[Rfam]
This 112-nucleotide RNA sequence from Aquibacillus halophilus belongs to the Rfam family "BsrF". On this family, see Saito et al., Gene 2008: "Novel small RNA-encoding genes in the intergenic regions of Bacillus subtilis". A search with the family's covariance model found it, with a score of 95 bits. The family's consensus secondary structure was predicted with WAR. Rfam classes the family as a small RNA.

RNA sequence: GCGAUGAGCUAUUUUGCGUAAGACGAAGGAUAUGCCAUCUGUGCUAAACGUCGAAUGUGGUCGACGGUUCUUCGCCGCAAAACGUACAUGGACACUUGUUUAGACAAGUGUC
Numbered sequence: 001g002c003g004a005u006g007a008g009c010u011a012u013u014u015u016g017c018g019u020a021a022g023a024c025g026a027a028g029g030a031u032a033u034g035c036c037a038u039c040u041g042u043g044c045u046a047a048a049c050g051u052c053g054a055a056u057g058u059g060g061u062c063g064a065c066g067g068u069u070c071u072u073c074g075c076c077g078c079a080a081a082a083c084g085u086a087c088a089u090g091g092a093c094a095c096u097u098g099u100u101u102a103g104a105c106a107a108g109u110g111u112c
Base pairs, nucleotide, nucleotide: 014080015079016078017077018076024074025073026072027071028070029069030068031067034044035043049066050065052063053062054061091112092111093110094109095108096107097106098105099104